RNA sequence: CUUGAAUAAUGCGGGAAGUAAUUCACGAACGCGAAGCCGCGCGACUGGUCGAUGGUGUGGAACAGCGGGUUCCAGCUGAACCAGGCCAGCAUGUAGCCCGGAAGCUGGUUGGCCACGAACAUCUUGCCCGACGCGAUCAUGUUGGCGCGG
Numbered sequence: 001c002u003u004g005a006a007u008a009a010u011g012c013g014g015g016a017a018g019u020a021a022u023u024c025a026c027g028a029a030c031g032c033g034a035a036g037c038c039g040c041g042c043g044a045c046u047g048g049u050c051g052a053u054g055g056u057g058u059g060g061a062a063c064a065g066c067g068g069g070u071u072c073c074a075g076c077u078g079a080a081c082c083a084g085g086c087c088a089g090c091a092u093g094u095a096g097c098c099c100g101g102a103a104g105c106u107g108g109u110u111g112g113c114c115a116c117g118a119a120c121a122u123c124u125u126g127c128c129c130g131a132c133g134c135g136a137u138c139a140u141g142u143u144g145g146c147g148c149g150g
Base pairs, nucleotide, nucleotide: 002034003033004032007029013023014022036056037055038054039053040051041050066149067148069081070080071079072078085146086145087144088143089142090141091140092139093138097133099130100129101128102125103124104123106121109118110117111116

The family of this 150-nucleotide RNA from Palleronia pontilimi is "Ruegeria cis2 sRNA". A reference for the family is Rivers et al. (2016), "Experimental Identification of Small Non-Coding RNAs in the Model Marine Bacterium Ruegeria pomeroyi DSS-3", Front Microbiol. Rfam links the family to the GO term regulation of gene expression. The organism belongs to Palleronia, within Bacteria. A search with the family's covariance model found it, with a score of 79 bits.